[Rfam]
RNA sequence: AAAGUUGGAAAUGGGUGCCUUAAGGUUUCCAACAGGACGAAUAAGAUCUAACCCUCAAGUGAUACAAGUAAUCAUUCAGUCGGUUCUGUAUCUCCACCUUAGUU
Numbered sequence: 001a002a003a004g005u006u007g008g009a010a011a012u013g014g015g016u017g018c019c020u021u022a023a024g025g026u027u028u029c030c031a032a033c034a035g036g037a038c039g040a041a042u043a044a045g046a047u048c049u050a051a052c053c054c055u056c057a058a059g060u061g062a063u064a065c066a067a068g069u070a071a072u073c074a075u076u077c078a079g080u081c082g083g084u085u086c087u088g089u090a091u092c093u094c095c096a097c098c099u100u101a102g103u104u
Base pairs, nucleotide, nucleotide: 004033005032006031007030008029009028011026012025039056040055059094061092062091063090064089065088066087070085071084072083073082
Rfam assigns this 104-nucleotide RNA to the family "Methylobacterium-1 RNA".
Rfam classes the family as a small RNA.
The base pairs follow the family's consensus structure, which is taken from published work.